[Rfam]
RNA: MIR2118 microRNA precursor family
Organism: Panicum miliaceum
RNA sequence: GCCAGGAAGAGGAAGAAAGAGAAUAUCUAAGAGCAGUGGGAAUGGGAACAUGGAGGAAAGCAUGAUAACUGUCUGUUUUUACCACUAGAAUUGGAUACAGACAUUUGUCUCAGUGUUUUCCGGAUGCCUCCCAUUCCUACAGUUCUUAAGUGCUCCUUCCUCUUCCUCUGACAU
Numbered sequence: 001g002c003c004a005g006g007a008a009g010a011g012g013a014a015g016a017a018a019g020a021g022a023a024u025a026u027c028u029a030a031g032a033g034c035a036g037u038g039g040g041a042a043u044g045g046g047a048a049c050a051u052g053g054a055g056g057a058a059a060g061c062a063u064g065a066u067a068a069c070u071g072u073c074u075g076u077u078u079u080u081a082c083c084a085c086u087a088g089a090a091u092u093g094g095a096u097a098c099a100g101a102c103a104u105u106u107g108u109c110u111c112a113g114u115g116u117u118u119u120c121c122g123g124a125u126g127c128c129u130c131c132c133a134u135u136c137c138u139a140c141a142g143u144u145c146u147u148a149a150g151u152g153c154u155c156c157u158u159c160c161u162c163u164u165c166c167u168c169u170g171a172c173a174u
Stems, first nucleotide, its partner, number of pairs: 009165005015159003021155002026150001028148007037139011049126003055121009